[Rfam]
Overview:
Rfam assigns this 190-nucleotide RNA sequence from Nocardioides sp. J9 to the family "Actinobacteria sRNA Ms_IGR-5". The family's RNA type in Rfam is small RNA. The organism belongs to Nocardioides, within Bacteria. The literature on the family includes a 2013 paper in RNA by Li et al., "Identification of small RNAs in Mycobacterium smegmatis using heterologous Hfq".
RNA sequence: ACACGGGAAAGGAGGUGGUCCGAAGAAUGAAUUCUCAUCGGAUGCGUGAGGUGGCUGCCCGCUAGCAGCCCCGCAGUGCGAAUUGCUUCGGCUGCGACGCGAAUCCAACGCAGCCACCCGACCCGCAGGUGAGUCCGGACCAUCCACCGGACGGGGUCCCUCCGCGGACCACACCUGCGGGUCGCUCCUU
Dot-bracket structure: .............((((((..................................))))))((((.((.(((..(((........)))...))).)).).))).................(((((((((((((.((((((........))))))...................)))))))))))))......

The match comes from Rfam's covariance-model search (114 bits).